[Rfam]
RNA sequence: ACAACAUUCGCACCGUCGGUCUACCGAGCAAUAUCACUUGUUCGGUGGAAGAUCUUCCCUUCGUCGU
Dot-bracket structure: ...((....(.(..(((..((((((((((..........)))))))))).)))..).)....))...
Shown here is a 67-nucleotide RNA sequence from Bombyx mori, a member of the family "mir-2774 microRNA precursor family". It scores 80 bits against the family's covariance model. For this family Rfam cites "MicroRNAs of Bombyx mori identified by Solexa sequencing" (Liu et al., BMC Genomics, 2010). Pairs were carried over by alignment from the consensus structure, which was predicted with RNAalifold.